[Rfam]
RNA sequence: AUGCAACUAGAUCCAUACCCCUAAACUCCCUAGUUUAAGGCUGGUGCUCACAGAGCACCAGCCAUUUUUU
Numbered sequence: 001a002u003g004c005a006a007c008u009a010g011a012u013c014c015a016u017a018c019c020c021c022u023a024a025a026c027u028c029c030c031u032a033g034u035u036u037a038a039g040g041c042u043g044g045u046g047c048u049c050a051c052a053g054a055g056c057a058c059c060a061g062c063c064a065u066u067u068u069u070u
Stems, first nucleotide, its partner, number of pairs: 005035005039063010
Rfam assigns this 70-nucleotide RNA sequence from Bacillus thermotolerans to the family "Listeria sRNA sbrA".
The base pairs follow the family's consensus structure, which was predicted with WAR.